HNH endonuclease-associated RNA and ORF (HEARO) RNA: a 245-nucleotide RNA from Halomonas sp. GFAJ-1.
[Rfam]
RNA sequence: GUCAGCUACCCCCGCCUGAAGGAGGGAGCUUGUGAAAACAAGCUAGGUUGACCAGGGAGAGCGGCUAUAUCGCCGCUACGUUGAUAAUAGGUCGUUAAGACUCACCAGUAGAUGCUUCCUCAGUCUAAUGCUCUGAAAGGUCAGCAUCAUGCUAGCGCAAGGUAAAACGCUGAAGGUGCUGAUCGCUGCUAACCGUACCCUCGUUGGCAGGAGCUGGUUAUCGACAUUCCCGAGGGGAGAUGGGG
Numbered sequence: 001g002u003c004a005g006c007u008a009c010c011c012c013c014g015c016c017u018g019a020a021g022g023a024g025g026g027a028g029c030u031u032g033u034g035a036a037a038a039c040a041a042g043c044u045a046g047g048u049u050g051a052c053c054a055g056g057g058a059g060a061g062c063g064g065c066u067a068u069a070u071c072g073c074c075g076c077u078a079c080g081u082u083g084a085u086a087a088u089a090g091g092u093c094g095u096u097a098a099g100a101c102u103c104a105c106c107a108g109u110a111g112a113u114g115c116u117u118c119c120u121c122a123g124u125c126u127a128a129u130g131c132u133c134u135g136a137a138a139g140g141u142c143a144g145c146a147u148c149a150u151g152c153u154a155g156c157g158c159a160a161g162g163u164a165a166a167a168c169g170c171u172g173a174a175g176g177u178g179c180u181g182a183u184c185g186c187u188g189c190u191a192a193c194c195g196u197a198c199c200c201u202c203g204u205u206g207g208c209a210g211g212a213g214c215u216g217g218u219u220a221u222c223g224a225c226a227u228u229c230c231c232g233a234g235g236g237g238a239g240a241u242g243g244g245g
Stems, first nucleotide, its partner, number of pairs: 001052007010028001012025002015022002029042004055231005060077005080225009090215001102136002106130002109127005114241001116239006139184010153172005
By type it is a non-coding RNA gene. The organism belongs to Halomonas, within Bacteria.